[Rfam]
RNA sequence: ACACGAGAGAGGAGGUGGUCCGAGAGUGCAUUCAUCUAGGACGCGUGAGGUGGUUGCGCACUAGCGCAGCCGUUGGUCGGCCUCCCAUUCGGUGACCGACUCUUCAACGGACGGCGUUGGUGAAGACCACGCACCACCGCAGCCCGUGGGGGCGCGACCCGUCCAUCGCGCACCGGCCACCAGGUCGGACCCCGCGGGCUGUUUCAC
Numbered sequence: 001a002c003a004c005g006a007g008a009g010a011g012g013a014g015g016u017g018g019u020c021c022g023a024g025a026g027u028g029c030a031u032u033c034a035u036c037u038a039g040g041a042c043g044c045g046u047g048a049g050g051u052g053g054u055u056g057c058g059c060a061c062u063a064g065c066g067c068a069g070c071c072g073u074u075g076g077u078c079g080g081c082c083u084c085c086c087a088u089u090c091g092g093u094g095a096c097c098g099a100c101u102c103u104u105c106a107a108c109g110g111a112c113g114g115c116g117u118u119g120g121u122g123a124a125g126a127c128c129a130c131g132c133a134c135c136a137c138c139g140c141a142g143c144c145c146g147u148g149g150g151g152g153c154g155c156g157a158c159c160c161g162u163c164c165a166u167c168g169c170g171c172a173c174c175g176g177c178c179a180c181c182a183g184g185u186c187g188g189a190c191c192c193c194g195c196g197g198g199c200u201g202u203u204u205c206a207c
Stems, first nucleotide, its partner, number of pairs: 015057005059122009069112001071109006140201012153170005

The record is a 207-nucleotide RNA sequence from Allobranchiibius huperziae, which matches "Actinobacteria sRNA Ms_IGR-5" in Rfam. A search with the family's covariance model found it, with a score of 76 bits.